[Rfam]
RNA sequence: CAGUUAGUGGGAAGAAAUCCACAUCUUUUGCUUGUUUAGAAGCAACUGCUGCACUUAGUACGACAGUAUCUCCGUAGCGUACAAACACCGAACCGUUAGCUUGUUUCGCUAAUUGUCCAACUUCGACUGUAAGUGGGCGUCCGCCCCAUGUUGUUGUAAAAACUUGUUUUCCUGACAUUGACAUAGUCUCCUUUACUUUUGCGAAAAGUAUGAUGGCCUACUAAACAAAUAACAAAGAAGUUAUCAAGCAUUUAAUGACUGAUAAUGAUAGUUUCCCUCUUAUUUGUAUAGUAGAAGAACACAGCAUCUUUUCGCGUUCCAAAAUAAUAUUCAAUAGCAAAAGAAAGCGAGACCCCAAAGAGUCUCACUUUCCU
Numbered sequence: 001c002a003g004u005u006a007g008u009g010g011g012a013a014g015a016a017a018u019c020c021a022c023a024u025c026u027u028u029u030g031c032u033u034g035u036u037u038a039g040a041a042g043c044a045a046c047u048g049c050u051g052c053a054c055u056u057a058g059u060a061c062g063a064c065a066g067u068a069u070c071u072c073c074g075u076a077g078c079g080u081a082c083a084a085a086c087a088c089c090g091a092a093c094c095g096u097u098a099g100c101u102u103g104u105u106u107c108g109c110u111a112a113u114u115g116u117c118c119a120a121c122u123u124c125g126a127c128u129g130u131a132a133g134u135g136g137g138c139g140u141c142c143g144c145c146c147c148a149u150g151u152u153g154u155u156g157u158a159a160a161a162a163c164u165u166g167u168u169u170u171c172c173u174g175a176c177a178u179u180g181a182c183a184u185a186g187u188c189u190c191c192u193u194u195a196c197u198u199u200u201g202c203g204a205a206a207a208g209u210a211u212g213a214u215g216g217c218c219u220a221c222u223a224a225a226c227a228a229a230u231a232a233c234a235a236a237g238a239a240g241u242u243a244u245c246a247a248g249c250a251u252u253u254a255a256u257g258a259c260u261g262a263u264a265a266u267g268a269u270a271g272u273u274u275c276c277c278u279c280u281u282a283u284u285u286g287u288a289u290a291g292u293a294g295a296a297g298a299a300c301a302c303a304g305c306a307u308c309u310u311u312u313c314g315c316g317u318u319c320c321a322a323a324a325u326a327a328u329a330u331u332c333a334a335u336a337g338c339a340a341a342a343g344a345a346a347g348c349g350a351g352a353c354c355c356c357a358a359a360g361a362g363u364c365u366c367a368c369u370u371u372c373c374u
Base pairs, nucleotide, nucleotide: 003338004337005336008334010332011331012330014219022215023214024213025212027079029077030043031042032041033040047068048067049066050065051064055060102207104206105205106204107203111198112197122158124156125155126154127153129151130150135145136144165177166176167175168174224318225317226316342374343372344371345370346369347368349366350365351364352363353362355360
Dot-bracket structure: ..(((..(.(((.(.......((((.(.(((((......))))...(((((...(....)...)))))........).)......................(.((((...((.........(.((((.((....((.......))....)).)))).)......((((.....))))...................))....)))))....))))...)....(((.........................................................................................)))...........))).).)))...((((((.(((((.(....).))))).))))).)